[Rfam]
RNA sequence: GCAGCGGGCACGCGCCAAGGGCUGACGCCCGAGGAAUGCCCGAGGAGUGAGGGAAGCCCCCGCGAGGUCGUGACUCGCGGGGGCUUCCU
Numbered sequence: 001g002c003a004g005c006g007g008g009c010a011c012g013c014g015c016c017a018a019g020g021g022c023u024g025a026c027g028c029c030c031g032a033g034g035a036a037u038g039c040c041c042g043a044g045g046a047g048u049g050a051g052g053g054a055a056g057c058c059c060c061c062g063c064g065a066g067g068u069c070g071u072g073a074c075u076c077g078c079g080g081g082g083g084c085u086u087c088c089u
Stems, first nucleotide, its partner, number of pairs: 002044001005042006051089016
About this RNA:
Rfam assigns this 89-nucleotide RNA from Streptomyces sp. cf386 to the family "sodF sRNA". Rfam classes the family as a small RNA. The pairing is the family consensus, mapped onto this sequence. For this family Rfam cites "Inverse regulation of Fe- and Ni-containing SOD genes by a Fur family regulator Nur through small RNA processed from 3'UTR of the sodF mRNA" (Kim et al., Nucleic Acids Res, 2014). The source organism's lineage runs through Bacteria, Actinomycetota, Kitasatosporales, Streptomycetaceae and Streptomyces.